[Rfam]
Nucleotides: 118
Stems, first nucleotide, its partner, number of pairs: 002014004016041006023034001025032002046117001048092002050089004054080002057077003061073004097114006
Number, partner (000 for none) and nucleotide at each position: 001000c002014g003013g004012g005011g006000a007000c008000g009000g010000c011005c012004c013003c014002u015000c016041g017040a018039a019038g020037u021036c022000g023034g024000a025032u026031u027000g028000c029000a030000g031026g032025a033000g034023c035000g036021g037020g038019c039018u040017u041016c042000a043000a044000a045000c046117c047000g048092c049091c050089a051088c052087a053086a054080g055079c056000u057077g058076c059075g060000u061073g062072g063071g064070u065000g066000a067000a068000g069000a070064g071063c072062c073061c074000c075059c076058g077057u078000g079055g080054u081000g082000a083000g084000c085000g086053u087052u088051g089050u090000c091049g092048g093000a094000a095000a096000a097114g098113u099112c100111g101110g102109g103000g104000g105000c106000a107000a108000c109102c110101u111100c112099g113098g114097c115000a116000g117046g118000u
Group II catalytic intron D1-D4-2: a 118-nucleotide RNA from Cupriavidus necator.
Rfam's curators write: Group II introns are found in rRNA, tRNA and mRNA of organelles in fungi, plants and protists, and also in mRNA in bacteria.
The organism belongs to Cupriavidus, within Bacteria.